[Rfam]
RNA sequence: UGGGAAGUCACUGGAGGCAGCGGUUCAUCGAUCUCUUCCUGGAUUUUGUUGUGAAAAAUACUCAAACAGAACAUGAAUGGGUCGAUAAACCUCUGCAUCCAGCGCCCGGUCC
Numbered sequence: 001u002g003g004g005a006a007g008u009c010a011c012u013g014g015a016g017g018c019a020g021c022g023g024u025u026c027a028u029c030g031a032u033c034u035c036u037u038c039c040u041g042g043a044u045u046u047u048g049u050u051g052u053g054a055a056a057a058a059u060a061c062u063c064a065a066a067c068a069g070a071a072c073a074u075g076a077a078u079g080g081g082u083c084g085a086u087a088a089a090c091c092u093c094u095g096c097a098u099c100c101a102g103c104g105c106c107c108g109g110u111c112c
Stems, first nucleotide, its partner, number of pairs: 013100003018095003022091004027086007036077003